[Rfam]
RNA: Archaeal large subunit ribosomal RNA, nucleotides 643 to 905
Organism: Candidatus Halobonum tyrrellensis
RNA sequence: GAGUGUGUCUGUUCGGCGAGUCUAACUCGAUCAUCGAGGAAGGCAUAGGGAAACCGAUACGGCCGCAGCGCUUUGCGCGAGGGCCACCGUGUUCAAGCGCGGGGAGUCGAACGGACACGACCCGAAACCGAGUGAUCUACGCGGGGGCAGGGUGAAGCGCGCCGAAAGGUGCGUGGAGGCCCGUUAGGGUUGGUGUCCUACAAUACCCUCCCGUGACCUGCGCGUAGGGGUGAAAGGCCCAUCGAACUCGGCAACAGCUGGUU
Numbered sequence: 001g002a003g004u005g006u007g008u009c010u011g012u013u014c015g016g017c018g019a020g021u022c023u024a025a026c027u028c029g030a031u032c033a034u035c036g037a038g039g040a041a042g043g044c045a046u047a048g049g050g051a052a053a054c055c056g057a058u059a060c061g062g063c064c065g066c067a068g069c070g071c072u073u074u075g076c077g078c079g080a081g082g083g084c085c086a087c088c089g090u091g092u093u094c095a096a097g098c099g100c101g102g103g104g105a106g107u108c109g110a111a112c113g114g115a116c117a118c119g120a121c122c123c124g125a126a127a128c129c130g131a132g133u134g135a136u137c138u139a140c141g142c143g144g145g146g147g148c149a150g151g152g153u154g155a156a157g158c159g160c161g162c163c164g165a166a167a168g169g170u171g172c173g174u175g176g177a178g179g180c181c182c183g184u185u186a187g188g189g190u191u192g193g194u195g196u197c198c199u200a201c202a203a204u205a206c207c208c209u210c211c212c213g214u215g216a217c218c219u220g221c222g223c224g225u226a227g228g229g230g231u232g233a234a235a236g237g238c239c240c241a242u243c244g245a246a247c248u249c250g251g252c253a254a255c256a257g258c259u260g261g262u263u
Stems, first nucleotide, its partner, number of pairs: 005118013020044004026038004048055002061085004068078004088101004121261002124258001128251006137227007145219003148215001150182004157174007187212003192208002195206002229239003